The record is a 127-nucleotide RNA from Theobroma umbraticum, which matches "Small nucleolar RNA snoR77" in Rfam.
Its family is annotated with RNA processing and nucleolus in the Gene Ontology.
The base pairs follow the family's consensus structure, which was predicted with WAR.
The family has 5 seed sequences and 649 matches in Rfam 15.1.
On this family, see Marker et al., Curr Biol 2002: "Experimental RNomics: identification of 140 candidates for small non-messenger RNAs in the plant Arabidopsis thaliana".
The family's RNA type in Rfam is H/ACA-box small nucleolar RNA.

[Rfam]
RNA sequence: AGGCAGCCUCCUUGCCCUCACCAUGGCAACAGGGGGUGUUAAACUGCUCGCAAAUUAAAUAUUGCUUUUGCUCUUCAGACUUGCUGAGAUUAUUCCUUGAAGCUGGUCUAGUAGGCCUAAGUACAUU
Numbered sequence: 001a002g003g004c005a006g007c008c009u010c011c012u013u014g015c016c017c018u019c020a021c022c023a024u025g026g027c028a029a030c031a032g033g034g035g036g037u038g039u040u041a042a043a044c045u046g047c048u049c050g051c052a053a054a055u056u057a058a059a060u061a062u063u064g065c066u067u068u069u070g071c072u073c074u075u076c077a078g079a080c081u082u083g084c085u086g087a088g089a090u091u092a093u094u095c096c097u098u099g100a101a102g103c104u105g106g107u108c109u110a111g112u113a114g115g116c117c118u119a120a121g122u123a124c125a126u127u
Stems, first nucleotide, its partner, number of pairs: 002040004007036002009033002012029005065121003070116003077109005083103003088095002